[Rfam]
RNA sequence: CCACAAUGAUGGCAAUAUUUUUCGUCAACAGCAGUUCACCUAGUGAGUGUUGAGACUCUGGGUCUGAGUGA
Number, nucleotide and partner (000 for none) at each position: 001c000002c070003a069004c068005a000006a000007u000008g026009a025010u024011g023012g000013c000014a000015a000016u000017a000018u000019u000020u000021u000022u000023c011024g010025u009026c008027a000028a000029c000030a000031g000032c000033a000034g000035u000036u000037c000038a000039c000040c000041u000042a000043g000044u000045g000046a000047g000048u000049g000050u000051u000052g000053a000054g000055a000056c000057u000058c000059u000060g000061g000062g000063u000064c000065u000066g000067a000068g004069u003070g002071a000
Source information:
The record is a 71-nucleotide RNA, which matches "Small nucleolar RNA SNORD56" in Rfam. The literature on the family includes a 2002 paper in Mol Cell Biol by Galardi et al., "Purified box C/D snoRNPs are able to reproduce site-specific 2'-O-methylation of target RNA in vitro". The family's RNA type in Rfam is C/D-box small nucleolar RNA. It is one of the family's seed sequences. Its family is annotated with nucleolus and RNA processing in the Gene Ontology. The family's consensus secondary structure was predicted with PFOLD.